[Rfam]
RNA sequence: GCUUCUGAUGAUGAUUCAAAUAAUACUUUCGUUCUUCCGAGGAUCUUAAUCCAUGCGGAAACAAUUAUUGGAGACCUGAACUGAAGAAGC
Numbered sequence: 001g002c003u004u005c006u007g008a009u010g011a012u013g014a015u016u017c018a019a020a021u022a023a024u025a026c027u028u029u030c031g032u033u034c035u036u037c038c039g040a041g042g043a044u045c046u047u048a049a050u051c052c053a054u055g056c057g058g059a060a061a062c063a064a065u066u067a068u069u070g071g072a073g074a075c076c077u078g079a080a081c082u083g084a085a086g087a088a089g090c
Stems, first nucleotide, its partner, number of pairs: 003088004

A member of the RNA family "Small nucleolar RNA Z159/U59" from Helianthus annuus, 90 nucleotides long.
The source organism's lineage runs through Eukaryota, eudicotyledons, campanulids, Asteraceae and Helianthus.
The family's RNA type in Rfam is C/D-box small nucleolar RNA.
Clan: SNORD59 clan.
The family's consensus secondary structure was predicted with PFOLD.
Rfam links the family to the GO terms nucleolus and RNA processing.